[Rfam]
RNA sequence: AAAGCCUUCAAGGGGAGCCUUCCGGCUGAGAGUGAACAUGGUUCAGACCCUUCGAACCUGUCAGUUAAUACUGGCGUAGGGAUGGUGGCUUUUUUGAUG
Numbered sequence: 001a002a003a004g005c006c007u008u009c010a011a012g013g014g015g016a017g018c019c020u021u022c023c024g025g026c027u028g029a030g031a032g033u034g035a036a037c038a039u040g041g042u043u044c045a046g047a048c049c050c051u052u053c054g055a056a057c058c059u060g061u062c063a064g065u066u067a068a069u070a071c072u073g074g075c076g077u078a079g080g081g082a083u084g085g086u087g088g089c090u091u092u093u094u095u096g097a098u099g
Base pairs, nucleotide, nucleotide: 006087008085009084010083011051012050013049014048017026018025019024033045034044035043036042037041057080058079059078060077061074062073063072064071
This 99-nucleotide RNA from Halobacillus sp. BBL2006 belongs to the Rfam family "TPP riboswitch aptamer (THI element)". The base pairs follow the family's consensus structure, which is taken from published work. Lineage of the source: Bacteria > Bacillati > Bacillota > Bacilli > Halobacillus. A search with the family's covariance model found it, with a score of 65 bits.